[Rfam]
RNA sequence: CUUACAGAGAUCUUUGGCAUUCUGUCCACCUCCUCUCUAUUAUACAUGUGUAUAAGUAUACGUAUCUGCGUUUGUGUUUGUGAGUGGAGGUGGGCAUACUGCCAGUAGAGAUCUGUUAG
Numbered sequence: 001c002u003u004a005c006a007g008a009g010a011u012c013u014u015u016g017g018c019a020u021u022c023u024g025u026c027c028a029c030c031u032c033c034u035c036u037c038u039a040u041u042a043u044a045c046a047u048g049u050g051u052a053u054a055a056g057u058a059u060a061c062g063u064a065u066c067u068g069c070g071u072u073u074g075u076g077u078u079u080g081u082g083a084g085u086g087g088a089g090g091u092g093g094g095c096a097u098a099c100u101g102c103c104a105g106u107a108g109a110g111a112u113c114u115g116u117u118a119g
Stems, first nucleotide, its partner, number of pairs: 011109001014105006023096011
RNA: MIR394 microRNA precursor family